[Rfam]
RNA: Potassium channel RNA editing signal
RNA sequence: GUGGGCUAUGGAGACAUGGUCCCAACAACCAUCGGAGGAAAGAUUGUGGGCUCUCUUUGUGCUAUCGCUGGCGUGCUGACUAUUGCCCUGCCUGUACCCGUCAUUGUGUCAAAC
Numbered sequence: 001g002u003g004g005g006c007u008a009u010g011g012a013g014a015c016a017u018g019g020u021c022c023c024a025a026c027a028a029c030c031a032u033c034g035g036a037g038g039a040a041a042g043a044u045u046g047u048g049g050g051c052u053c054u055c056u057u058u059g060u061g062c063u064a065u066c067g068c069u070g071g072c073g074u075g076c077u078g079a080c081u082a083u084u085g086c087c088c089u090g091c092c093u094g095u096a097c098c099c100g101u102c103a104u105u106g107u108g109u110c111a112a113a114c
Stems, first nucleotide, its partner, number of pairs: 001114002005110001007108005013102003018097001021094001037077002040074001049063003